Shown here is a 136-nucleotide RNA from Streptococcus ovuberis, a member of the family "Ribosomal protein L10 leader". Rfam describes the family as follows. This family is a putative r-protein leader autoregulatory structure found in B. subtilis and other low-GC Gram-positive bacteria. The family's RNA type in Rfam is cis-regulatory leader. Rfam links the family to the GO term regulation of gene expression.

[Rfam]
RNA sequence: GAAGUUUGAAAAAACUGACCUAAGACAGCAGGGGGCCAGAGCCAUAAAAAUCCUGCCGAGGCACAAAAACGUUAUCUAAGAUUAUGCGUAUUUGUACUUUCGUGUCUAGGUCUGGGCGCGUUUUUCUUUUGAAAAA
Numbered sequence: 001g002a003a004g005u006u007u008g009a010a011a012a013a014a015c016u017g018a019c020c021u022a023a024g025a026c027a028g029c030a031g032g033g034g035g036c037c038a039g040a041g042c043c044a045u046a047a048a049a050a051u052c053c054u055g056c057c058g059a060g061g062c063a064c065a066a067a068a069a070c071g072u073u074a075u076c077u078a079a080g081a082u083u084a085u086g087c088g089u090a091u092u093u094g095u096a097c098u099u100u101c102g103u104g105u106c107u108a109g110g111u112c113u114g115g116g117c118g119c120g121u122u123u124u125u126c127u128u129u130u131g132a133a134a135a136a
Stems, first nucleotide, its partner, number of pairs: 028056006034043003101120008
The base pairs follow the family's consensus structure, which was predicted with CMfinder. For this family Rfam cites "Diverse mechanisms for regulating ribosomal protein synthesis in Escherichia coli" (Zengel and Lindahl, Prog Nucleic Acid Res Mol Biol, 1994). Taxonomically the source falls in Streptococcus (Bacteria, Bacilli, Lactobacillales, Streptococcaceae).